Rfam assigns this 68-nucleotide sequence from Eucalyptus grandis to the family "Plastid-clpP 5UTR RNA". Pairs were carried over by alignment from the consensus structure, which was predicted with LocARNA. Rfam 15.1 lists 2,105 matches to the family in 526 species. A search with the family's covariance model found it, with a score of 67 bits. Plastid clpP is a non-coding RNA (ncRNA) recognised in plastids. It was found in the prime untranslated region (5UTR) of a protease complex subunit (clpP) in plastids, suggesting a posible cis-regulatory function. It is annotated as a cis-regulatory element. A reference for the family is Richter et al. (2023), "Retrograde signaling in plants: A critical review focusing on the GUN pathway and beyond", Plant Commun.

RNA sequence: GACUCAUUCGUGGGAACAAAGAGAAGCAGAUCUAUUCUAUAUCCAAUAAGUGACAAUAUGCAAUGGGG
Numbered sequence: 001g002a003c004u005c006a007u008u009c010g011u012g013g014g015a016a017c018a019a020a021g022a023g024a025a026g027c028a029g030a031u032c033u034a035u036u037c038u039a040u041a042u043c044c045a046a047u048a049a050g051u052g053a054c055a056a057u058a059u060g061c062a063a064u065g066g067g068g
Base pairs, nucleotide, nucleotide: 003021004020007016008015009014042067043066044065050059051058052057